[Rfam]
RNA sequence: GUGCGGUCACAAAAACUUUAGUUUUUGAACAUUGCUUUAGCAAUGACCCCGAAGGGAUAAACAACGCUGUCAAAGGAUUGUGAAUAAUUCCUGCAAU
Numbered sequence: 001g002u003g004c005g006g007u008c009a010c011a012a013a014a015a016c017u018u019u020a021g022u023u024u025u026u027g028a029a030c031a032u033u034g035c036u037u038u039a040g041c042a043a044u045g046a047c048c049c050c051g052a053a054g055g056g057a058u059a060a061a062c063a064a065c066g067c068u069g070u071c072a073a074a075g076g077a078u079u080g081u082g083a084a085u086a087a088u089u090c091c092u093g094c095a096a097u
Stems, first nucleotide, its partner, number of pairs: 010027007030045006046058001048056003061081004067075002085093002
Rfam assigns this 97-nucleotide RNA from Cricetibacter osteomyelitidis to the family "Aggregatibacter sRNA 22". The family's consensus secondary structure was predicted with RNAfold. The family's RNA type in Rfam is small RNA.